[Rfam]
RNA sequence: CAGGUGUGUCCUCACAGACGAGCCCCUAUCAAUAUUGCCUCUGCUUUCACCACAGUUCAAACAGUAGUGCAAUAUUGCUUAUAGGGUCUCAUCUCUGAGGCAUG
Numbered sequence: 001c002a003g004g005u006g007u008g009u010c011c012u013c014a015c016a017g018a019c020g021a022g023c024c025c026c027u028a029u030c031a032a033u034a035u036u037g038c039c040u041c042u043g044c045u046u047u048c049a050c051c052a053c054a055g056u057u058c059a060a061a062c063a064g065u066a067g068u069g070c071a072a073u074a075u076u077g078c079u080u081a082u083a084g085g086g087u088c089u090c091a092u093c094u095c096u097g098a099g100g101c102a103u104g
Base pairs, nucleotide, nucleotide: 020090021089022088024086025085026084027083028082029081030077031076032075033074034073035072036071037070038069041067042066043065044064045063

mir-454 microRNA precursor family: a 104-nucleotide RNA sequence from Labrus bergylta. Its family is annotated with miRNA-mediated post-transcriptional gene silencing and RISC complex in the Gene Ontology. The organism belongs to Labrus, within Eukaryota. A search with the family's covariance model found it, with a score of 71 bits. The literature on the family includes a 2005 paper in Genes Dev by Chen et al., "The developmental miRNA profiles of zebrafish as determined by small RNA cloning". The base pairs follow the family's consensus structure, which was predicted with RNAalifold.